[Rfam]
Glycine riboswitch aptamer: a 100-nucleotide sequence from Novilysobacter concretionis. The source organism's lineage runs through Bacteria, Pseudomonadati, Gammaproteobacteria, Novilysobacter and Novilysobacter concretionis.
RNA sequence: AUUCAUCCGGUGGGAGAAGCGGCCCAAGCCUCCACAGGCCUGGCCGCUGCCGAAGGCGCAACGCCCGUAAUCGCUCAGGCCCCCGUACCGCCGGAUGUGA
Dot-bracket structure: .....((((((((.....((((((.................)))))).(((((..(((...(....)....))))).))).......)))))))).....
Numbered sequence: 001a002u003u004c005a006u007c008c009g010g011u012g013g014g015a016g017a018a019g020c021g022g023c024c025c026a027a028g029c030c031u032c033c034a035c036a037g038g039c040c041u042g043g044c045c046g047c048u049g050c051c052g053a054a055g056g057c058g059c060a061a062c063g064c065c066c067g068u069a070a071u072c073g074c075u076c077a078g079g080c081c082c083c084c085g086u087a088c089c090g091c092c093g094g095a096u097g098u099g100a
Stems, first nucleotide, its partner, number of pairs: 006095008019047006049080003052076002056074003062067001
Rfam links the family to the GO term glycine biosynthetic process. A search with the family's covariance model found it, with a score of 53 bits.